Record summary: This 426-nucleotide RNA from Deinococcus sp. RL belongs to the Rfam family "Bacterial RNase P class A". The match comes from Rfam's covariance-model search (234 bits). Rfam describes the family as follows. Ribonuclease P (RNase P) is a ubiquitous endoribonuclease, found in archaea, bacteria and eukarya as well as chloroplasts and mitochondria. The organism belongs to Deinococcus, within Bacteria. The family's consensus secondary structure is taken from published work.
RNA sequence: GCGGGGAGGUUCAUGGCCGCGCUCCUGCUUUGCAGGGGUGAGGAAAGUCCGGGCACCGCAGGGCAGGAUGCCAGCUAACGGCUGGUCGGCGAGCCAAGCGUCCCUCUAGAGCGCCGAACCGGGGGGAAGGCGGCGAAGCCGAAGGACAGUGCCACAGAAACCAGACCGCCAGUUUCCGCAGAGCCCCGGCGCGGGUGGAGCUGGUCAGGGUGAAACGGUGCGGUAAGAGCGCACCAGGCCGCCGGGAGACCGGGGGCGCUGGUAAACCCCAUCCGGUGCAAGACCCGACCGUGCGCGAGGAGCGGCCCGCUCCGAAGACCGCCAGGAUGGUCGCUAGAGGUGCGCGGCGACGCGCAUCCCAGAGAGAUGGCCAUGCCCCCCCUUGACCGGGGGAGACAGAACCCGGCUUAUCGCCUCCCCGCUCCC
Number, nucleotide and partner (000 for none) at each position: 001g422002c421003g420004g419005g418006g417007a416008g415009g414010u413011u000012c375013a374014u373015g372016g371017c370018c369019g000020c040021g039022c038023u037024c036025c035026u034027g033028c032029u000030u000031u000032g028033c027034a026035g025036g024037g023038g022039u021040g020041a000042g000043g000044a000045a409046a408047g407048u000049c406050c405051g404052g403053g402054c278055a277056c276057c275058g000059c000060a000061g308062g307063g306064c305065a000066g274067g273068a272069u271070g270071c085072c084073a083074g082075c081076u000077a000078a000079c000080g000081g075082c074083u073084g072085g071086u143087c141088g140089g139090c138091g000092a000093g000094c000095c000096a000097a000098g000099c000100g000101u000102c000103c000104c000105u000106c000107u000108a000109g000110a000111g000112c000113g000114c000115c000116g000117a000118a000119c000120c000121g000122g000123g000124g000125g000126g000127a000128a000129g000130g000131c000132g000133g000134c000135g000136a000137a000138g090139c089140c088141g087142a000143a086144g269145g268146a000147c000148a000149g267150u266151g263152c262153c261154a000155c000156a000157g000158a000159a000160a000161c000162c000163a000164g000165a000166c209167c208168g205169c204170c203171a202172g201173u200174u199175u198176c197177c000178g000179c000180a000181g000182a000183g000184c000185c000186c000187c000188g000189g000190c000191g000192c000193g000194g000195g000196u000197g176198g175199a174200g173201c172202u171203g170204g169205u168206c000207a000208g167209g166210g000211u000212g000213a000214a000215a000216c000217g235218g234219u233220g232221c231222g230223g000224u000225a000226a000227g000228a000229g000230c222231g221232c220233a219234c218235c217236a000237g259238g257239c256240c255241g000242c253243c252244g251245g250246g000247a000248g000249a000250c245251c244252g243253g242254g000255g240256g239257c238258g000259c237260u000261g153262g152263u151264a000265a000266a150267c149268c145269c144270c070271a069272u068273c067274c066275g057276g056277u055278g054279c000280a000281a000282g332283a331284c330285c329286c000287g000288a000289c000290c000291g000292u000293g322294c321295g320296c000297g000298a000299g313300g312301a311302g310303c309304g000305g064306c063307c062308c061309g303310c302311u301312c300313c299314g000315a000316a000317g000318a000319c000320c295321g294322c293323c000324a000325g000326g000327a000328u000329g285330g284331u283332c282333g000334c000335u000336a000337g000338a000339g358340g357341u356342g355343c354344g353345c352346g351347g000348c000349g000350a000351c346352g345353c344354g343355c342356a341357u340358c339359c000360c000361a000362g000363a000364g000365a000366g000367a000368u000369g018370g017371c016372c015373a014374u013375g012376c000377c000378c000379c000380c000381c000382c000383u000384u000385g000386a000387c000388c000389g000390g000391g000392g000393g000394a000395g000396a000397c000398a000399g000400a000401a000402c053403c052404c051405g050406g049407c047408u046409u045410a000411u000412c000413g010414c009415c008416u007417c006418c005419c004420c003421g002422c001423u000424c000425c000426c000